A member of the RNA family "RNase MRP" from Chironomus riparius, 292 nucleotides long. The literature on the family includes a 2005 paper in Nucleic Acids Res by Piccinelli et al., "Identification and analysis of ribonuclease P and MRP RNA in a broad range of eukaryotes". NCBI's taxonomy places the organism under Eukaryota, Opisthokonta, Nematocera, Chironomoidea, Chironomus. Rfam 15.1 lists 3,510 matches to the family in 2,315 species.
RNA sequence: UGAUUCUCGCUUGCCUUUGUACCAGGACACAAACGAGUUUCUGAUAACUCCCAGGUUCGAAUCUUCUGUGGGAAAGUCCCCGGGCAUUUUUUCGGUAGAAAGUACCAAGUUCUAAGUAGCUUACGCAUUUUCAGAGAUCCUCACUUGUAUAAGACGGGUUUAUUCUCGGAUUUAUAGUGACGUUGAUAUUGAAAAUGCGGAUUUAUGGGCCAUUUUAGGAAAUAAAGUUAUGCAAAGAAAUUUUAAGGUAACACUUGAAAUUUAACUCAACGGGGCUCACACAGUGAGAAUC
Numbered sequence: 001u002g003a004u005u006c007u008c009g010c011u012u013g014c015c016u017u018u019g020u021a022c023c024a025g026g027a028c029a030c031a032a033a034c035g036a037g038u039u040u041c042u043g044a045u046a047a048c049u050c051c052c053a054g055g056u057u058c059g060a061a062u063c064u065u066c067u068g069u070g071g072g073a074a075a076g077u078c079c080c081c082g083g084g085c086a087u088u089u090u091u092u093c094g095g096u097a098g099a100a101a102g103u104a105c106c107a108a109g110u111u112c113u114a115a116g117u118a119g120c121u122u123a124c125g126c127a128u129u130u131u132c133a134g135a136g137a138u139c140c141u142c143a144c145u146u147g148u149a150u151a152a153g154a155c156g157g158g159u160u161u162a163u164u165c166u167c168g169g170a171u172u173u174a175u176a177g178u179g180a181c182g183u184u185g186a187u188a189u190u191g192a193a194a195a196u197g198c199g200g201a202u203u204u205a206u207g208g209g210c211c212a213u214u215u216u217a218g219g220a221a222a223u224a225a226a227g228u229u230a231u232g233c234a235a236a237g238a239a240a241u242u243u244u245a246a247g248g249u250a251a252c253a254c255u256u257g258a259a260a261u262u263u264a265a266c267u268c269a270a271c272g273g274g275g276c277u278c279a280c281a282c283a284g285u286g287a288g289a290a291u292c
Stems, first nucleotide, its partner, number of pairs: 002292010015237006023070001024067004035050005075277002078275004094106004107122005124199003131186004136181001142179004146174002149171001156167003239262009